[Rfam]
About this RNA:
Shown here is a 189-nucleotide RNA sequence from Bacillus sp. FJAT-27231, a member of the family "6S / SsrS RNA". A reference for the family is Wassarman and Storz (2000), "6S RNA regulates E. coli RNA polymerase activity", Cell. Rfam classes the family as a non-coding RNA gene. It scores 107 bits against the family's covariance model. Lineage of the source: Bacteria > Bacillota > Bacilli > Caryophanales > Bacillus.
Nucleotides: 189
Stems, first nucleotide, its partner, number of pairs: 002187010012176004017172003034155004039150003042146002060130003064126004069121001071120001074118006085107001090103004
Number, partner (000 for none) and nucleotide at each position: 001000g002187a003186a004185g005184u006183c007182c008181u009180g010179a011178u012176g013175u014174g015173u016000c017172c018171g019170u020000u021000u022000a023000u024000u025000u026000u027000c028000a029000c030000u031000a032000u033000c034155u035154g036153u037152u038000u039150u040149g041148a042146c043145c044000g045000a046000a047000c048000a049000a050000u051000g052000u053000a054000u055000g056000u057000u058000a059000c060130g061129g062128g063000a064126g065125c066124u067123c068000g069121g070000g071120u072000u073000u074118g075117u076116a077115a078114a079113u080000g081000g082000c083000g084000u085107a086000c087000a088000c089000g090103c091102c092101u093100c094000c095000c096000u097000u098000g099000c100093g101092a102091g103090g104000a105000c106000u107085u108000a109000c110000a111000a112000a113079g114078u115077u116076u117075a118074c119000u120071g121069c122000a123067g124066a125065g126064c127000a128062c129061c130060c131000a132000c133000c134000u135000g136000c137000c138000u139000a140000g141000a142000g143000c144000g145043g146042g147000u148041u149040c150039a151000a152037a153036a154035c155034a156000u157000a158000u159000a160000g161000a162000u163000u164000c165000a166000u167000a168000g169000g170019a171018c172017g173015g174014c175013a176012c177000g178011a179010u180009c181008g182007g183006g184005a185004u186003u187002u188000c189000c